[Rfam]
RNA: Bacterial small subunit ribosomal RNA, nucleotides 526 to 879
RNA sequence: GGCGUAAAGAGCGCGUAGGCGGGGCAAUAAGUCAGAUGUGAAAUCCUGUGGCUUAACUACAGAACUGCAUUUGAAACUGUUGCUCUGGAGUAUGGGAGAGGUAGGUGGAAUUCUUGGUGUAGGGGUAAAAUCCGUAGAGAUCAAGAGGAAUACUCAUUGCGAAGGCGACCUGCUGGAACAUUACUGACGCUAAUGCGCGAAAGCGUGGGGAGCAAACAGGAUUAGAUACCCUGGUAGUCCACGCCCUAAACGAUGGAUGCUAGUUGUUGGGAGGCUUGUCCUUCCAGUAAUGCAGCUAACGCAUUAAGCAUCCCGCCUGGGGAGUACGGUCGCAAGAUUAAAACUCAAAGGAAU
Numbered sequence: 001g002g003c004g005u006a007a008a009g010a011g012c013g014c015g016u017a018g019g020c021g022g023g024g025c026a027a028u029a030a031g032u033c034a035g036a037u038g039u040g041a042a043a044u045c046c047u048g049u050g051g052c053u054u055a056a057c058u059a060c061a062g063a064a065c066u067g068c069a070u071u072u073g074a075a076a077c078u079g080u081u082g083c084u085c086u087g088g089a090g091u092a093u094g095g096g097a098g099a100g101g102u103a104g105g106u107g108g109a110a111u112u113c114u115u116g117g118u119g120u121a122g123g124g125g126u127a128a129a130a131u132c133c134g135u136a137g138a139g140a141u142c143a144a145g146a147g148g149a150a151u152a153c154u155c156a157u158u159g160c161g162a163a164g165g166c167g168a169c170c171u172g173c174u175g176g177a178a179c180a181u182u183a184c185u186g187a188c189g190c191u192a193a194u195g196c197g198c199g200a201a202a203g204c205g206u207g208g209g210g211a212g213c214a215a216a217c218a219g220g221a222u223u224a225g226a227u228a229c230c231c232u233g234g235u236a237g238u239c240c241a242c243g244c245c246c247u248a249a250a251c252g253a254u255g256g257a258u259g260c261u262a263g264u265u266g267u268u269g270g271g272a273g274g275c276u277u278g279u280c281c282u283u284c285c286a287g288u289a290a291u292g293c294a295g296c297u298a299a300c301g302c303a304u305u306a307a308g309c310a311u312c313c314c315g316c317c318u319g320g321g322g323a324g325u326a327c328g329g330u331c332g333c334a335a336g337a338u339u340a341a342a343a344c345u346c347a348a349a350g351g352a353a354u
Stems, first nucleotide, its partner, number of pairs: 001317003009314001011198004016192001018191003022085007030078002032074009046062006089185003092181003100174007107151001111147008122133003159166002203244006212238002217233004255313006263291012295302002319346003328339004